[Rfam]
RNA sequence: GCAGACACAACACUACGAUGCUCGUUCCGUACAGAACUUCGCGUUCUUAUUCACGAGCGGGUAAGGUCUGAGUGAAGCUUCCUUUGCUUGUCCCUAGCAGGGUCCAGGUCCAACCACACCUGUACGACACAUCAGAAAAACGCCUCCUUGCACCAAGCCUUGCUACCCAUUCUGGAUCUCAAAGAAUUUACAUUACGACCUUCCUAUCUGAUACUGUCGAUGGCUUGGUCGUACUGUAAUGAGAGAGAAAGAAGACUUGUAGCGCUUAGGUGGAGGAGACUUGGAAUCUGUCGUGGAGCUUGGGCGUUUCGACUUUUUCAUCAAUGGCAUGCUCUAUCAGCGUAGCAGCGUCUACGAGUUAGAUGCGGGUGAUAUCGGUGGGGUUUCUUGGCCAAAAAAUCGUAUCAUUCCUCGACAAUUGUCUUUUCAGGCAGUCGAUGCUCUGCUAUGUGGGGUAGGACCUUGUGUUGGCUGUCGAUACCCUCUCAAGUGCUUAUCAACACUAGUAUGAUCCACGAAUGAGGAGUCUCACAUGCUUUGAUAUGUUCUGAAACGUCCUUCAGUGCAAUUCGUGGUACAUGCCCUUCAACCAUCUGGUUGUUUGCGUGUAACUCAAUUCAGACUAUUCUGUGUCUGC
Numbered sequence: 001g002c003a004g005a006c007a008c009a010a011c012a013c014u015a016c017g018a019u020g021c022u023c024g025u026u027c028c029g030u031a032c033a034g035a036a037c038u039u040c041g042c043g044u045u046c047u048u049a050u051u052c053a054c055g056a057g058c059g060g061g062u063a064a065g066g067u068c069u070g071a072g073u074g075a076a077g078c079u080u081c082c083u084u085u086g087c088u089u090g091u092c093c094c095u096a097g098c099a100g101g102g103u104c105c106a107g108g109u110c111c112a113a114c115c116a117c118a119c120c121u122g123u124a125c126g127a128c129a130c131a132u133c134a135g136a137a138a139a140a141c142g143c144c145u146c147c148u149u150g151c152a153c154c155a156a157g158c159c160u161u162g163c164u165a166c167c168c169a170u171u172c173u174g175g176a177u178c179u180c181a182a183a184g185a186a187u188u189u190a191c192a193u194u195a196c197g198a199c200c201u202u203c204c205u206a207u208c209u210g211a212u213a214c215u216g217u218c219g220a221u222g223g224c225u226u227g228g229u230c231g232u233a234c235u236g237u238a239a240u241g242a243g244a245g246a247g248a249a250a251g252a253a254g255a256c257u258u259g260u261a262g263c264g265c266u267u268a269g270g271u272g273g274a275g276g277a278g279a280c281u282u283g284g285a286a287u288c289u290g291u292c293g294u295g296g297a298g299c300u301u302g303g304g305c306g307u308u309u310c311g312a313c314u315u316u317u318u319c320a321u322c323a324a325u326g327g328c329a330u331g332c333u334c335u336a337u338c339a340g341c342g343u344a345g346c347a348g349c350g351u352c353u354a355c356g357a358g359u360u361a362g363a364u365g366c367g368g369g370u371g372a373u374a375u376c377g378g379u380g381g382g383g384u385u386u387c388u389u390g391g392c393c394a395a396a397a398a399a400u401c402g403u404a405u406c407a408u409u410c411c412u413c414g415a416c417a418a419u420u421g422u423c424u425u426u427u428c429a430g431g432c433a434g435u436c437g438a439u440g441c442u443c444u445g446c447u448a449u450g451u452g453g454g455g456u457a458g459g460a461c462c463u464u465g466u467g468u469u470g471g472c473u474g475u476c477g478a479u480a481c482c483c484u485c486u487c488a489a490g491u492g493c494u495u496a497u498c499a500a501c502a503c504u505a506g507u508a509u510g511a512u513c514c515a516c517g518a519a520u521g522a523g524g525a526g527u528c529u530c531a532c533a534u535g536c537u538u539u540g541a542u543a544u545g546u547u548c549u550g551a552a553a554c555g556u557c558c559u560u561c562a563g564u565g566c567a568a569u570u571c572g573u574g575g576u577a578c579a580u581g582c583c584c585u586u587c588a589a590c591c592a593u594c595u596g597g598u599u600g601u602u603u604g605c606g607u608g609u610a611a612c613u614c615a616a617u618u619c620a621g622a623c624u625a626u627u628c629u630g631u632g633u634c635u636g637c
Stems, first nucleotide, its partner, number of pairs: 001637004007631003012576007020058005033047005068621005076300004090104001092102003105122005142280001144278006577609006
RNA: Nuclear RNase P
Organism: Lentinula edodes